[Rfam]
RNA sequence: GCCGGGAGAUCCCCGGGCCAGGACGAGGGUGGGGGAACCAACUCGGCCCGCUUCGGCGGGUCUUGGGGUGAAGCCGGUCCGCCGGCCGGGCGCCUGACAGCCCGAACCCGACAGCUCACCUCUCAGGCGCAGGUCAGGAGAGGAAUA
Numbered sequence: 001g002c003c004g005g006g007a008g009a010u011c012c013c014c015g016g017g018c019c020a021g022g023a024c025g026a027g028g029g030u031g032g033g034g035g036a037a038c039c040a041a042c043u044c045g046g047c048c049c050g051c052u053u054c055g056g057c058g059g060g061u062c063u064u065g066g067g068g069u070g071a072a073g074c075c076g077g078u079c080c081g082c083c084g085g086c087c088g089g090g091c092g093c094c095u096g097a098c099a100g101c102c103c104g105a106a107c108c109c110g111a112c113a114g115c116u117c118a119c120c121u122c123u124c125a126g127g128c129g130c131a132g133g134u135c136a137g138g139a140g141a142g143g144a145a146u147a
Stems, first nucleotide, its partner, number of pairs: 001128003011028002029124001031122004039065002066109003074085004088103004

Shown here is a 147-nucleotide RNA from Pedococcus cremeus, a member of the family "c-di-AMP riboswitch aptamer (ydaO/yuaA leader)". The organism belongs to Pedococcus, within Bacteria.